[Rfam]
RNA sequence: CUAAUUCUGCCGCCGGACCGCGCGCAAGCGACGUACGUCACCAGGCAGAAGCGGGGGACCCACAGGUAAGUGCCCGACGCGCCGACGGCGCGGACGGCUAGGGGUGAAGCCAUGCCUCGUACCGGAAUAUUCCAUUCCGUUACGGGUCGCACGGCCGGGCGAUCUCCAGUCCGAACCCGACAGCUCACCUCGCCGGCGUCGGAGAGGAGCACC
Numbered sequence: 001c002u003a004a005u006u007c008u009g010c011c012g013c014c015g016g017a018c019c020g021c022g023c024g025c026a027a028g029c030g031a032c033g034u035a036c037g038u039c040a041c042c043a044g045g046c047a048g049a050a051g052c053g054g055g056g057g058a059c060c061c062a063c064a065g066g067u068a069a070g071u072g073c074c075c076g077a078c079g080c081g082c083c084g085a086c087g088g089c090g091c092g093g094a095c096g097g098c099u100a101g102g103g104g105u106g107a108a109g110c111c112a113u114g115c116c117u118c119g120u121a122c123c124g125g126a127a128u129a130u131u132c133c134a135u136u137c138c139g140u141u142a143c144g145g146g147u148c149g150c151a152c153g154g155c156c157g158g159g160c161g162a163u164c165u166c167c168a169g170u171c172c173g174a175a176c177c178c179g180a181c182a183g184c185u186c187a188c189c190u191c192g193c194c195g196g197c198g199u200c201g202g203a204g205a206g207g208a209g210c211a212c213c
Base pairs, nucleotide, nucleotide: 001195005050006049007048008047009046010045011044051193052192053191054190055189056188061101102178103177104176110154111153113151114150115149157172158171159170160169
RNA: c-di-AMP riboswitch aptamer (ydaO/yuaA leader)
Organism: Streptomyces smaragdinus